The family of this 84-nucleotide RNA is "freshwater-2 RNA".
[Rfam]
RNA sequence: UUAGGCAAAAUUGCUUAACUUAUGCGGUCACCCGCCGCGUAGUCCCUAGAACGGACAUUGGACUCCUAAAAGGAGAAAACAAUG
Numbered sequence: 001u002u003a004g005g006c007a008a009a010a011u012u013g014c015u016u017a018a019c020u021u022a023u024g025c026g027g028u029c030a031c032c033c034g035c036c037g038c039g040u041a042g043u044c045c046c047u048a049g050a051a052c053g054g055a056c057a058u059u060g061g062a063c064u065c066c067u068a069a070a071a072g073g074a075g076a077a078a079a080c081a082a083u084g
Stems, first nucleotide, its partner, number of pairs: 001018006021041007042056004